RNA sequence: UCUGUGAUGAUGAGACGCGCAGGGGUACGGACCUCAGCCGGUGAUGGGGGCUGAGUGCUGCUGCCGACUCUGAUCAGUGGACGAGUGGUUCACUGACGGACGACAGCAGCGCGAGACAGACGCCACACUGAACAGA
Number, nucleotide and partner (000 for none) at each position: 001u136002c135003u134004g133005u132006g000007a000008u000009g000010a000011u000012g000013a000014g000015a000016c000017g000018c000019g000020c000021a000022g000023g000024g000025g000026u000027a000028c000029g000030g000031a000032c000033c000034u000035c000036a000037g000038c000039c000040g000041g000042u000043g000044a000045u000046g000047g000048g000049g000050g000051c000052u000053g000054a000055g000056u000057g000058c000059u000060g000061c000062u000063g000064c000065c000066g000067a000068c000069u000070c000071u000072g000073a000074u000075c000076a000077g000078u000079g000080g000081a000082c000083g000084a000085g000086u000087g000088g000089u000090u000091c000092a000093c000094u000095g000096a000097c000098g000099g000100a000101c000102g000103a000104c000105a000106g000107c000108a000109g000110c000111g000112c000113g000114a000115g000116a000117c000118a000119g000120a000121c000122g000123c000124c000125a000126c000127a000128c000129u000130g000131a000132a005133c004134a003135g002136a001
The family of this 136-nucleotide RNA from Lates calcarifer is "Small nucleolar RNA SNORD94". Its family is annotated with RNA processing and nucleolus in the Gene Ontology. Pairs were carried over by alignment from the consensus structure, which was predicted with RNAalifold.